The record is a 101-nucleotide RNA sequence from Macaca nemestrina, which matches "Y RNA" in Rfam. The base pairs follow the family's consensus structure, which is taken from published work. It is annotated as a non-coding RNA gene.
RNA sequence: GGCUGGUCCAAGUGCAGUGGUGUUGACAAAUAAUUGAUCACAACCACUUACAAAUUUCAGCAUUCCUUCCCCACUCCACCGCUUUGCUUGACUAGCCUAAA
Number, nucleotide and partner (000 for none) at each position: 001g097002g096003c095004u094005g093006g092007u091008c090009c000010a089011a088012g000013u000014g085015c000016a000017g079018u078019g077020g076021u000022g075023u000024u000025g000026a000027c000028a000029a000030a000031u000032a064033a063034u062035u000036g000037a000038u000039c000040a000041c000042a000043a000044c000045c000046a000047c000048u000049u000050a000051c000052a000053a000054a000055u000056u000057u000058c000059a000060g000061c000062a034063u033064u032065c000066c000067u000068u000069c000070c000071c000072c000073a000074c000075u022076c020077c019078a018079c017080c000081g000082c000083u000084u000085u014086g000087c000088u011089u010090g008091a007092c006093u005094a004095g003096c002097c001098u000099a000100a000101a000

Y RNAs are components of the Ro ribonucleoprotein particle (Ro RNP), in association with Ro60 and La proteins. The Y RNAs and Ro60 and La proteins are well conserved, but the function of the Ro RNP is not known. In humans the RNA component can be one of four small RNAs -- hY1, hY3, hY4 and hY5.